[Rfam]
RNA sequence: UUGAGGCGGAAACCAAAUAAACGAAGUUUAUUUAUUAAGAUGUUUCCGACGACUUGCCGCCGACCUAAGGAGGGGGCGCUACAUUAA
Numbered sequence: 001u002u003g004a005g006g007c008g009g010a011a012a013c014c015a016a017a018u019a020a021a022c023g024a025a026g027u028u029u030a031u032u033u034a035u036u037a038a039g040a041u042g043u044u045u046c047c048g049a050c051g052a053c054u055u056g057c058c059g060c061c062g063a064c065c066u067a068a069g070g071a072g073g074g075g076g077c078g079c080u081a082c083a084u085u086a087a
Stems, first nucleotide, its partner, number of pairs: 008047006016032006056077003060073002064070002
The family of this 87-nucleotide RNA sequence from Eubacterium sp. CAG:161 is "GA-cis RNA".
By type it is a small RNA.